[Rfam]
RNA sequence: UGGGAAUGCACUGGAGGCAGCGGUUCAUCGAUCUGUUUAUGAGAUUUUGUUGUGAGUAAACACAGUACAUGAAUCGGUCGAUAAACCUCUGCAUCCAGCGCUCACUCU
Numbered sequence: 001u002g003g004g005a006a007u008g009c010a011c012u013g014g015a016g017g018c019a020g021c022g023g024u025u026c027a028u029c030g031a032u033c034u035g036u037u038u039a040u041g042a043g044a045u046u047u048u049g050u051u052g053u054g055a056g057u058a059a060a061c062a063c064a065g066u067a068c069a070u071g072a073a074u075c076g077g078u079c080g081a082u083a084a085a086c087c088u089c090u091g092c093a094u095c096c097a098g099c100g101c102u103c104a105c106u107c108u
Base pairs, nucleotide, nucleotide: 013096014095015094018091019090020089022087023086024085025084027082028081029080030079031078032077033076036073037072038071

Rfam assigns this 108-nucleotide RNA from Pyrus ussuriensis x Pyrus communis to the family "MIR162_1 microRNA precursor family".
Pairs were carried over by alignment from the consensus structure, which was predicted with RNAalifold.
A reference for the family is Reinhart et al. (2002), "MicroRNAs in plants", Genes Dev.
A search with the family's covariance model found it, with a score of 100 bits.
Taxonomically the source falls in Pyrus (Eukaryota, Embryophyta, Tracheophyta, Rosaceae).
The family is grouped with related families in Rfam's "MIR167 microRNA precursor clan".
Its family is annotated with miRNA-mediated post-transcriptional gene silencing and RISC complex in the Gene Ontology.